[Rfam]
RNA: L31-Firmicutes ribosomal protein leader
RNA sequence: CUCUGCUUGAAGAAGGAUCAGGGCGAAAGGAG
Numbered sequence: 001c002u003c004u005g006c007u008u009g010a011a012g013a014a015g016g017a018u019c020a021g022g023g024c025g026a027a028a029g030g031a032g
Stems, first nucleotide, its partner, number of pairs: 001023005006016003